A member of the RNA family "Group II catalytic intron D1-D4-7" from Candidatus Entotheonella gemina, 147 nucleotides long. On this family, see Lehmann and Schmidt, Crit Rev Biochem Mol Biol 2003: "Group II introns: structure and catalytic versatility of large natural ribozymes". Its family is annotated with Group II intron splicing in the Gene Ontology. Rfam 15.1 lists 1,296 matches to the family in 705 species. Rfam's curators write: Group II introns are found in rRNA, tRNA and mRNA of organelles in fungi, plants and protists, and also in mRNA in bacteria. The organism belongs to Candidatus Entotheonella, within Bacteria.
RNA sequence: CCCGCUGUCCCAUCAGCGGUAUCCUACGGAGAUGUGCAGGAAGGUAACGACCUGUACAGAGCCUCCGGACAAUGUACCCACAGUCUCAGACUGGCAUCGAAACCGUGAGGCCACGAUGUCUCUGUCAGCACCAAGACGGAGUUGGGG
Numbered sequence: 001c002c003c004g005c006u007g008u009c010c011c012a013u014c015a016g017c018g019g020u021a022u023c024c025u026a027c028g029g030a031g032a033u034g035u036g037c038a039g040g041a042a043g044g045u046a047a048c049g050a051c052c053u054g055u056a057c058a059g060a061g062c063c064u065c066c067g068g069a070c071a072a073u074g075u076a077c078c079c080a081c082a083g084u085c086u087c088a089g090a091c092u093g094g095c096a097u098c099g100a101a102a103c104c105g106u107g108a109g110g111c112c113a114c115g116a117u118g119u120c121u122c123u124g125u126c127a128g129c130a131c132c133a134a135g136a137c138g139g140a141g142u143u144g145g146g147g
Stems, first nucleotide, its partner, number of pairs: 002019006028066004033058008043048001081093005094119004103110002121140006